[Rfam]
RNA sequence: UGGCGGGGGAGCACCGCAACGGGAGGAAUGUGCGGUUUAAUUGGAUUCAACGCCGGAAAACUCACCGGGAACGACCUGUGCAUGAGAGUCAACCUGACGAGUUUACUCGAUAGCAGGAGAGGUGGUGCAUGGCCGUCGUCAGCUCGUACCGUAGGGCGUUCACUUAAGUGUGAUAACGAGCGAGACCCACAUCUUUAAUUGCAAAUGUAUAUGAGAAUAUGCAUGCACUUUAGAGAAACCGCCAGCGCUAAGUUGGAGGAAGGAGUGGUCGACGGCAGGUCAGUACGCCCCGAAUUUCCCGGGCUACACGCGCAUUACAAAGAACGGGACAAUACGUUGCAACCUCGAAAGGGGAAGCUAAUCGCGAAACCCGUCCAUAGUUAGGAUUGAGGGCUGUAACUCGCCCUCAUGAAUCUGGAUUCCGUAGUAAUCGCGGGUCAACAACCCGCGGUGAACAUGCCCCUGCUCCUUGCACACACCGCCCGUCAAACCAUCCGAGUUGGUGUUGGAUGAGGUUUAAUUCGAGAGGGUUAAAUCAAAUCUGAUGUCGGUGAGGAGGGUUAAGUCGUAACAAGGUAUCCGUAGGGGAACCUGCGGAUG
Numbered sequence: 001u002g003g004c005g006g007g008g009g010a011g012c013a014c015c016g017c018a019a020c021g022g023g024a025g026g027a028a029u030g031u032g033c034g035g036u037u038u039a040a041u042u043g044g045a046u047u048c049a050a051c052g053c054c055g056g057a058a059a060a061c062u063c064a065c066c067g068g069g070a071a072c073g074a075c076c077u078g079u080g081c082a083u084g085a086g087a088g089u090c091a092a093c094c095u096g097a098c099g100a101g102u103u104u105a106c107u108c109g110a111u112a113g114c115a116g117g118a119g120a121g122g123u124g125g126u127g128c129a130u131g132g133c134c135g136u137c138g139u140c141a142g143c144u145c146g147u148a149c150c151g152u153a154g155g156g157c158g159u160u161c162a163c164u165u166a167a168g169u170g171u172g173a174u175a176a177c178g179a180g181c182g183a184g185a186c187c188c189a190c191a192u193c194u195u196u197a198a199u200u201g202c203a204a205a206u207g208u209a210u211a212u213g214a215g216a217a218u219a220u221g222c223a224u225g226c227a228c229u230u231u232a233g234a235g236a237a238a239c240c241g242c243c244a245g246c247g248c249u250a251a252g253u254u255g256g257a258g259g260a261a262g263g264a265g266u267g268g269u270c271g272a273c274g275g276c277a278g279g280u281c282a283g284u285a286c287g288c289c290c291c292g293a294a295u296u297u298c299c300c301g302g303g304c305u306a307c308a309c310g311c312g313c314a315u316u317a318c319a320a321a322g323a324a325c326g327g328g329a330c331a332a333u334a335c336g337u338u339g340c341a342a343c344c345u346c347g348a349a350a351g352g353g354g355a356a357g358c359u360a361a362u363c364g365c366g367a368a369a370c371c372c373g374u375c376c377a378u379a380g381u382u383a384g385g386a387u388u389g390a391g392g393g394c395u396g397u398a399a400c401u402c403g404c405c406c407u408c409a410u411g412a413a414u415c416u417g418g419a420u421u422c423c424g425u426a427g428u429a430a431u432c433g434c435g436g437g438u439c440a441a442c443a444a445c446c447c448g449c450g451g452u453g454a455a456c457a458u459g460c461c462c463c464u465g466c467u468c469c470u471u472g473c474a475c476a477c478a479c480c481g482c483c484c485g486u487c488a489a490a491c492c493a494u495c496c497g498a499g500u501u502g503g504u505g506u507u508g509g510a511u512g513a514g515g516u517u518u519a520a521u522u523c524g525a526g527a528g529g530g531u532u533a534a535a536u537c538a539a540a541u542c543u544g545a546u547g548u549c550g551g552u553g554a555g556g557a558g559g560g561u562u563a564a565g566u567c568g569u570a571a572c573a574a575g576g577u578a579u580c581c582g583u584a585g586g587g588g589a590a591c592c593u594g595c596g597g598a599u600g
Stems, first nucleotide, its partner, number of pairs: 001476002003473003007470007016460002020424005025318001027316008035307002041056004065302007075117004079112002087107003091103003121291002124289004130285002132280003135276004142181006149156002160173004187268004192236007202225002206223007239259002242256005322376001324374005335364002339358002343354004383414001388409007430452008479575001481572001484568002487565001489562004494557003499552013514537010577600010
RNA: Archaeal small subunit ribosomal RNA, nucleotides 860 to 1459
Organism: Ferroplasma sp. Type II